Shown here is a 77-nucleotide sequence from Quercus lobata, a member of the family "Small nucleolar RNA R21". Its family is annotated with RNA processing and nucleolus in the Gene Ontology. The base pairs follow the family's consensus structure, which was predicted with PFOLD. A reference for the family is Barneche et al. (2001), "Identification of 66 box C/D snoRNAs in Arabidopsis thaliana: extensive gene duplications generated multiple isoforms predicting new ribosomal RNA 2'-O-methylation sites", J Mol Biol. The organism belongs to Quercus, within Eukaryota. Rfam classes the family as a C/D-box small nucleolar RNA.
RNA sequence: CAUCCCUGUGAGGAUUUUGUUUAAUUAAAAAGUAGUGGACUGAUAUUAAUUGAUGAACAACUCAAUUCUGAGGGAUG
Numbered sequence: 001c002a003u004c005c006c007u008g009u010g011a012g013g014a015u016u017u018u019g020u021u022u023a024a025u026u027a028a029a030a031a032g033u034a035g036u037g038g039a040c041u042g043a044u045a046u047u048a049a050u051u052g053a054u055g056a057a058c059a060a061c062u063c064a065a066u067u068c069u070g071a072g073g074g075a076u077g
Base pairs, nucleotide, nucleotide: 001077002076003075004074005073006072